The record is a 139-nucleotide sequence from Paracoccus onubensis, which matches "TPP riboswitch aptamer (THI element)" in Rfam. From the family's description: Vitamin B(1) in its active form thiamin pyrophosphate (TPP) is an essential coenzyme that is synthesised by coupling of pyrimidine and thiazole moieties in bacteria. A search with the family's covariance model found it, with a score of 55 bits.
[Rfam]
Nucleotides: 139
Base pairs, nucleotide, nucleotide: 006127008125009124010123011089012088013087014086017032018031019030020029021028039083040082041081042080095120096119097118098117101114102113103112104111
Number, partner (000 for none) and nucleotide at each position: 001000a002000g003000g004000c005000g006127c007000a008125g009124u010123c011089a012088g013087g014086g015000g016000a017032g018031u019030c020029c021028c022000g023000c024000c025000c026000a027000a028021g029020g030019g031018a032017c033000u034000g035000a036000g037000a038000g039083g040082c041081u042080g043000a044000u045000u046000g047000g048000u049000g050000g051000c052000a053000g054000c055000a056000u057000c058000a059000u060000g061000c062000a063000a064000a065000u066000g067000a068000g069000c070000u071000g072000c073000c074000a075000c076000g077000g078000u079000g080042u081041g082040g083039c084000g085000a086014c087013c088012c089011u090000u091000u092000g093000a094000a095120c096119c097118u098117g099000a100000c101114c102113c103112a104111g105000u106000u107000g108000a109000g110000a111104c112103u113102g114101g115000c116000g117098u118097a119096g120095g121000a122000a123010g124009a125008c126000c127006g128000a129000a130000g131000g132000g133000c134000a135000c136000a137000u138000g139000c